[Rfam]
RNA sequence: GGGUGCUUGAGGCUUUCUGGCUUCAGGCAAUCGAUGAGGUUCAGAAGGACGAAAGCCCCAGGAAGAUGUUUAAUAUCAACCUGAGGCUAGCUUCCGAACCCAAACAUUCGGAUGUUAGUCUCUUCUUUGCAUGGAGGCAAGACAUGCUGACGAAAUACG
Numbered sequence: 001g002g003g004u005g006c007u008u009g010a011g012g013c014u015u016u017c018u019g020g021c022u023u024c025a026g027g028c029a030a031u032c033g034a035u036g037a038g039g040u041u042c043a044g045a046a047g048g049a050c051g052a053a054a055g056c057c058c059c060a061g062g063a064a065g066a067u068g069u070u071u072a073a074u075a076u077c078a079a080c081c082u083g084a085g086g087c088u089a090g091c092u093u094c095c096g097a098a099c100c101c102a103a104a105c106a107u108u109c110g111g112a113u114g115u116u117a118g119u120c121u122c123u124u125c126u127u128u129g130c131a132u133g134g135a136g137g138c139a140a141g142a143c144a145u146g147c148u149g150a151c152g153a154a155a156u157a158c159g
Stems, first nucleotide, its partner, number of pairs: 001059003005056004011050001013048008022039001024038001027035001060082003063076001065074001067072001083122005090115002093112006126150002130146002